[Rfam]
RNA sequence: ACUGCGGAUAGGCCGGCCAGCCGAAAGCGCGCGUCCUGGGCGCGUUUCCGCAGUCCCUCACACCCAGG
Numbered sequence: 001a002c003u004g005c006g007g008a009u010a011g012g013c014c015g016g017c018c019a020g021c022c023g024a025a026a027g028c029g030c031g032c033g034u035c036c037u038g039g040g041c042g043c044g045u046u047u048c049c050g051c052a053g054u055c056c057c058u059c060a061c062a063c064c065c066a067g068g
Stems, first nucleotide, its partner, number of pairs: 001054008011022003027045005035068006

Notes:
This 68-nucleotide sequence from Burkholderia multivorans belongs to the Rfam family "int-alpA RNA". Rfam describes the family as follows. Acidobacteria (1 example), Planctomycetes (1 example), Proteobacteria. By type it is a small RNA. Rfam's curators put it in the seed alignment.